[Rfam]
RNA: mir-184 microRNA precursor family
RNA sequence: CCAUUCCCGUCUCCUUAUCACUUUUCCUGCCAGCUUUUCCGCUCUGACUGUUGGACGGAGAACUGAUAAGGGUACGUGUCUGA
Numbered sequence: 001c002c003a004u005u006c007c008c009g010u011c012u013c014c015u016u017a018u019c020a021c022u023u024u025u026c027c028u029g030c031c032a033g034c035u036u037u038u039c040c041g042c043u044c045u046g047a048c049u050g051u052u053g054g055a056c057g058g059a060g061a062a063c064u065g066a067u068a069a070g071g072g073u074a075c076g077u078g079u080c081u082g083a
Base pairs, nucleotide, nucleotide: 012072013071014070015069016068017067018066019065020064022062023061024060025059026058027057030054031053